[Rfam]
RNA: Bacterial small subunit ribosomal RNA, nucleotides 869 to 1455
Organism: Calothrix sp. PCC 7507
RNA sequence: UGACGGGGGCCCGCACAAGCGGUGGAGUAUGUGGUUUAAUUCGAUGCAACGCGAAGAACCUUACCAAGACUUGACAUGUCGCGAAUCCUGCUGAAAGGUGGGAGUGCCUUCGGGAGCGCGAACACAGGUGGUGCAUGGCUGUCGUCAGCUCGUGUCGUGAGAUGUUGGGUUAAGUCCCGCAACGAGCGCAACCCUCGUUUUUAGUUGCCAGCACUUAGGGUGGGCACUCUAGAGAGACUGCCGGUGACAAACCGGAGGAAGGUGGGGAUGACGUCAAGUCAGCAUGCCCCUUACGUCUUGGGCUACACACGUACUACAAUGCUACGGACAGAGGGCAGCAAGCUAGCGAUAGCAAGCUAAUCCCGGAAACCGUAGCUCAGUUCAGAUCGCAGGCUGCAACUCGCCUGCGUGAAGGAGGAAUCGCUAGUAAUUGCAGGUCAGCAUACUGCAGUGAAUUCGUUCCCGGGCCUUGUACACACCGCCCGUCACACCAUGGAAGCUGGUCACGCCCGAAGUCGUUACCCCAACCUUUCGAGGAGGGGGAUGCCUAAGGCAGGACUGGUGACUGGGGUGAAGUCGUAACAAGG
Numbered sequence: 001u002g003a004c005g006g007g008g009g010c011c012c013g014c015a016c017a018a019g020c021g022g023u024g025g026a027g028u029a030u031g032u033g034g035u036u037u038a039a040u041u042c043g044a045u046g047c048a049a050c051g052c053g054a055a056g057a058a059c060c061u062u063a064c065c066a067a068g069a070c071u072u073g074a075c076a077u078g079u080c081g082c083g084a085a086u087c088c089u090g091c092u093g094a095a096a097g098g099u100g101g102g103a104g105u106g107c108c109u110u111c112g113g114g115a116g117c118g119c120g121a122a123c124a125c126a127g128g129u130g131g132u133g134c135a136u137g138g139c140u141g142u143c144g145u146c147a148g149c150u151c152g153u154g155u156c157g158u159g160a161g162a163u164g165u166u167g168g169g170u171u172a173a174g175u176c177c178c179g180c181a182a183c184g185a186g187c188g189c190a191a192c193c194c195u196c197g198u199u200u201u202u203a204g205u206u207g208c209c210a211g212c213a214c215u216u217a218g219g220g221u222g223g224g225c226a227c228u229c230u231a232g233a234g235a236g237a238c239u240g241c242c243g244g245u246g247a248c249a250a251a252c253c254g255g256a257g258g259a260a261g262g263u264g265g266g267g268a269u270g271a272c273g274u275c276a277a278g279u280c281a282g283c284a285u286g287c288c289c290c291u292u293a294c295g296u297c298u299u300g301g302g303c304u305a306c307a308c309a310c311g312u313a314c315u316a317c318a319a320u321g322c323u324a325c326g327g328a329c330a331g332a333g334g335g336c337a338g339c340a341a342g343c344u345a346g347c348g349a350u351a352g353c354a355a356g357c358u359a360a361u362c363c364c365g366g367a368a369a370c371c372g373u374a375g376c377u378c379a380g381u382u383c384a385g386a387u388c389g390c391a392g393g394c395u396g397c398a399a400c401u402c403g404c405c406u407g408c409g410u411g412a413a414g415g416a417g418g419a420a421u422c423g424c425u426a427g428u429a430a431u432u433g434c435a436g437g438u439c440a441g442c443a444u445a446c447u448g449c450a451g452u453g454a455a456u457u458c459g460u461u462c463c464c465g466g467g468c469c470u471u472g473u474a475c476a477c478a479c480c481g482c483c484c485g486u487c488a489c490a491c492c493a494u495g496g497a498a499g500c501u502g503g504u505c506a507c508g509c510c511c512g513a514a515g516u517c518g519u520u521a522c523c524c525c526a527a528c529c530u531u532u533c534g535a536g537g538a539g540g541g542g543g544a545u546g547c548c549u550a551a552g553g554c555a556g557g558a559c560u561g562g563u564g565a566c567u568g569g570g571g572u573g574a575a576g577u578c579g580u581a582a583c584a585a586g587g
Stems, first nucleotide, its partner, number of pairs: 001476002003473003007470007015460002019424005024317001026315008034306002040055004064301007077124002079121005086103007105116001107114002127290002130288004136284002138279003141275001143273002148187006154163003166179004193267004198235007208224002212222003238258002241255005321376007333364003338357002343352003383414001388409007430452007479586001481583001484579002489573004494568003499563007508554003515548001517546004522542004528537002